[Rfam]
RNA sequence: UAAAUGCACUAGGGGCGUUUUAUAACUGAGAUGAAGCAUGGCUUCAGACCCUUUGAACCUGAUCUAGCUGAAACUAGCGUAGGAAAGUGUGAGUACAUAACU
Numbered sequence: 001u002a003a004a005u006g007c008a009c010u011a012g013g014g015g016c017g018u019u020u021u022a023u024a025a026c027u028g029a030g031a032u033g034a035a036g037c038a039u040g041g042c043u044u045c046a047g048a049c050c051c052u053u054u055g056a057a058c059c060u061g062a063u064c065u066a067g068c069u070g071a072a073a074c075u076a077g078c079g080u081a082g083g084a085a086a087g088u089g090u091g092a093g094u095a096c097a098u099a100a101c102u
Base pairs, nucleotide, nucleotide: 006090007089008088009087010086011052012051013050014049017026018025019024033045034044035043036042037041058083059082060081061080064077065076066075067074
Record summary: A member of the RNA family "TPP riboswitch aptamer (THI element)" from Staphylococcus simulans, 102 nucleotides long. From the family's description: Vitamin B(1) in its active form thiamin pyrophosphate (TPP) is an essential coenzyme that is synthesised by coupling of pyrimidine and thiazole moieties in bacteria. The previously detected thiamin-regulatory element, thi box was extended, resulting in a new, highly conserved RNA secondary structure, the THI element, which is widely distributed in eubacteria and also occurs in some archaea. Analysis of operon structures identified a large number of new candidate thiamin-regulated genes, mostly transporters, in various prokaryotic organisms. The THI element is a riboswitch that directly binds to TPP to regulate gene expression through a variety of mechanisms in archaea, bacteria and eukaryotes. through a variety of mechanisms in archaea, bacteria and eukaryotes. The family's consensus secondary structure is taken from published work. NCBI's taxonomy places the organism under Bacteria, Bacillati, Bacillota, Staphylococcaceae, Staphylococcus.